[Rfam]
RNA sequence: GUCAUACUACGGUGCAUUGCACCGCAAAGUAAACGAUGACCCCCGGGGAACUUCCGGGUAAAAUGAGUAUCAAAUUGAAAAAUUAUCACUGACCCGGGGGUCUUCCCCGGGUCGGUUUUCUUU
Numbered sequence: 001g002u003c004a005u006a007c008u009a010c011g012g013u014g015c016a017u018u019g020c021a022c023c024g025c026a027a028a029g030u031a032a033a034c035g036a037u038g039a040c041c042c043c044c045g046g047g048g049a050a051c052u053u054c055c056g057g058g059u060a061a062a063a064u065g066a067g068u069a070u071c072a073a074a075u076u077g078a079a080a081a082a083u084u085a086u087c088a089c090u091g092a093c094c095c096g097g098g099g100g101u102c103u104u105c106c107c108c109g110g111g112u113c114g115g116u117u118u119u120c121u122u123u
Stems, first nucleotide, its partner, number of pairs: 001040005010035002014030002041048002057071004088116011
The family of this 123-nucleotide RNA sequence from Jejuibacter calystegiae is "Enterobacteria greA leader".
The match comes from Rfam's covariance-model search (117 bits).
The family's RNA type in Rfam is cis-regulatory leader.
Gene Ontology term of the family: regulation of gene expression.
Lineage of the source: Bacteria > Pseudomonadota > Enterobacterales > Enterobacteriaceae > Jejuibacter.
A reference for the family is Naville and Gautheret (2010), "Premature terminator analysis sheds light on a hidden world of bacterial transcriptional attenuation", Genome Biol.